[Rfam]
Nucleotides: 103
Stems, first nucleotide, its partner, number of pairs: 002102007013043005021032003026077004044069004049065002051062004073095001078092006
Number, partner (000 for none) and nucleotide at each position: 001000g002102u003101g004100u005099u006098a007097u008096c009000a010000a011000g012000a013043g014042u015041g016040a017039a018000c019000g020000a021032g022031a023030g024000u025000a026077c027076u028075g029074g030023c031022u032021c033000c034000a035000u036000g037000a038000c039017u040016u041015c042014a043013c044069a045068g046067c047066a048000a049065c050064c051062u052061g053060c054059c055000a056000a057000g058000c059054g060053g061052u062051a063000a064050g065049g066047u067046g068045c069044u070000u071000c072000c073095a074029c075028c076027a077026g078092c079091a080090a081089a082088g083087c084000a085000u086000u087083g088082c089081u090080u091079u092078g093000a094000a095073u096008g097007a098006u099005g100004a101003c102002a103000a